RNA sequence: GUCACGGCGGUUUCAGAUUAGCUUGGUGCAGCUCGGGAAUUGAUUGGUUGACACCGCCUCAUAGUUUUCCAUCGUUGGCUUGUGAGCACGAAUCAGUUCCCGUGUAGCACCAAGAUAAUCGGAGACCGAGGUGAAA
Numbered sequence: 001g002u003c004a005c006g007g008c009g010g011u012u013u014c015a016g017a018u019u020a021g022c023u024u025g026g027u028g029c030a031g032c033u034c035g036g037g038a039a040u041u042g043a044u045u046g047g048u049u050g051a052c053a054c055c056g057c058c059u060c061a062u063a064g065u066u067u068u069c070c071a072u073c074g075u076u077g078g079c080u081u082g083u084g085a086g087c088a089c090g091a092a093u094c095a096g097u098u099c100c101c102g103u104g105u106a107g108c109a110c111c112a113a114g115a116u117a118a119u120c121g122g123a124g125a126c127c128g129a130g131g132u133g134a135a136a
Base pairs, nucleotide, nucleotide: 013123014122017119018118019117020116023113024112025111026110027109028108029107031105032104034102035101036100037099038098040096041095042094043093044092

Rfam assigns this 136-nucleotide sequence from Microthlaspi erraticum to the family "MIR168 microRNA precursor family".
The source organism's lineage runs through Eukaryota, Euphyllophyta, Mesangiospermae, eudicotyledons and Microthlaspi.
The literature on the family includes a 2002 paper in Genes Dev by Reinhart et al., "MicroRNAs in plants".